[Rfam]
RNA sequence: CACCGACAUCAGCGAUUCGUUCUGAGAACCUUCGCCUACCGCGAGAUAAGAAUGCAUGCCCAGCUCUUUCAUCUGUUGUUCGCCAAUCACGCGGGUGACCACGUUUUUGCUGAACGAGUCCGCCAGCUGGCGGGCCUGAGAGGCCAGGUACGCGGCGUUACAGAUGUUUGGCGGCAUGUUGCCGAGAUCUUUCGC
Dot-bracket structure: ....((.....(.(.(((.(...).))).).)(((.....)))......(........)..(((..........)))((((((((.(...((((((..(..((....))..).....))))))..).))))))))(((.((.(((........))).)).)))...((((((........)))))).))......
Numbered sequence: 001c002a003c004c005g006a007c008a009u010c011a012g013c014g015a016u017u018c019g020u021u022c023u024g025a026g027a028a029c030c031u032u033c034g035c036c037u038a039c040c041g042c043g044a045g046a047u048a049a050g051a052a053u054g055c056a057u058g059c060c061c062a063g064c065u066c067u068u069u070c071a072u073c074u075g076u077u078g079u080u081c082g083c084c085a086a087u088c089a090c091g092c093g094g095g096u097g098a099c100c101a102c103g104u105u106u107u108u109g110c111u112g113a114a115c116g117a118g119u120c121c122g123c124c125a126g127c128u129g130g131c132g133g134g135c136c137u138g139a140g141a142g143g144c145c146a147g148g149u150a151c152g153c154g155g156c157g158u159u160a161c162a163g164a165u166g167u168u169u170g171g172c173g174g175c176a177u178g179u180u181g182c183c184g185a186g187a188u189c190u191u192u193c194g195c
Stems, first nucleotide, its partner, number of pairs: 005189002012032001014030001016028003020024001033043003050059001062077003078135008087126001091123006099112001102109002136163003140159002143156003167186006